Notes
The family of this 102-nucleotide RNA sequence from Sporosarcina sp. HYO08 is "Purine riboswitch aptamer". Taxonomically the source falls in Sporosarcina (Bacteria, Bacillota, Caryophanales, Caryophanaceae). Riboswitches are metabolite binding domains within certain messenger RNAs that serve as precision sensors for their corresponding targets. Allosteric rearrangement of mRNA structure is mediated by ligand binding, and this results in modulation of gene expression. A class of riboswitches that selectively recognises guanine and becomes saturated at concentrations as low as 5 nM. In Bacillus subtilis, this mRNA motif is located on at least five separate transcriptional units that together encode 17 genes that are mostly involved in purine transport and purine nucleotide biosynthesis. It has also been shown that some members of this family are specific for adenine instead.
[Rfam]
RNA sequence: GGCAUUCUAAAUAUAUUCACUCAUAUAAUCGCGAGAAUAGGGCUCGCAAGUUUCUACCGGUUUACCGUAAAUAAGCCGACUAUGAGCAGCAAAAAUAUUGAU
Numbered sequence: 001g002g003c004a005u006u007c008u009a010a011a012u013a014u015a016u017u018c019a020c021u022c023a024u025a026u027a028a029u030c031g032c033g034a035g036a037a038u039a040g041g042g043c044u045c046g047c048a049a050g051u052u053u054c055u056a057c058c059g060g061u062u063u064a065c066c067g068u069a070a071a072u073a074a075g076c077c078g079a080c081u082a083u084g085a086g087c088a089g090c091a092a093a094a095a096u097a098u099u100g101a102u
Base pairs, nucleotide, nucleotide: 020086021085022084023083024082025081029049031047032046033045034044035043058078059077060076061075062074063073064072
Source information: The match comes from Rfam's covariance-model search (84 bits).